[Rfam]
RNA sequence: UGAUGAUAACCAUUUGUACCGAAGACAGCAGGUGUGGCUUGCCACUUAAUGCUCCUGCCGAGGACAAGACGCUCUUUUUUAAAGAUGACGACUUUUCUGCCCUCAUGUCUUAGACAUUGAGGGCUUUUUAUAUCGGUAU
Numbered sequence: 001u002g003a004u005g006a007u008a009a010c011c012a013u014u015u016g017u018a019c020c021g022a023a024g025a026c027a028g029c030a031g032g033u034g035u036g037g038c039u040u041g042c043c044a045c046u047u048a049a050u051g052c053u054c055c056u057g058c059c060g061a062g063g064a065c066a067a068g069a070c071g072c073u074c075u076u077u078u079u080u081a082a083a084g085a086u087g088a089c090g091a092c093u094u095u096u097c098u099g100c101c102c103u104c105a106u107g108u109c110u111u112a113g114a115c116a117u118u119g120a121g122g123g124c125u126u127u128u129u130a131u132a133u134c135g136g137u138a139u
Stems, first nucleotide, its partner, number of pairs: 028058005034045003099124007106116003
The family of this 139-nucleotide RNA sequence from Sporosarcina sp. P19 is "Ribosomal protein L10 leader". A search with the family's covariance model found it, with a score of 72 bits. Rfam classes the family as a cis-regulatory leader. The source organism's lineage runs through Bacteria, Bacillota, Caryophanales, Caryophanaceae and Sporosarcina. Its family is annotated with regulation of gene expression in the Gene Ontology. Rfam's curators write: This family is a putative r-protein leader autoregulatory structure found in B. subtilis and other low-GC Gram-positive bacteria. It is located in the 5' untranslated regions of mRNAs encoding ribosomal proteins L10 and L12 (rplJ-rplL). A Rho-independent transcription terminator structure that is probably involved in regulation is included at the 3' end.